RNA sequence: UGUGCGGGCCGGGCCCCUCUGACGGUCGUUUACGGCGACUGUGAUGUCGGACCGCAUCG
Numbered sequence: 001u002g003u004g005c006g007g008g009c010c011g012g013g014c015c016c017c018u019c020u021g022a023c024g025g026u027c028g029u030u031u032a033c034g035g036c037g038a039c040u041g042u043g044a045u046g047u048c049g050g051a052c053c054g055c056a057u058c059g
Stems, first nucleotide, its partner, number of pairs: 006053002009050004022042008
terC RNA: a 59-nucleotide RNA from Sphingobium sp. TKS. The match comes from Rfam's covariance-model search (64 bits). The family's consensus secondary structure is taken from published work. NCBI's taxonomy places the organism under Bacteria, Pseudomonadota, Alphaproteobacteria, Sphingomonadales, Sphingobium. By type it is a cis-regulatory element.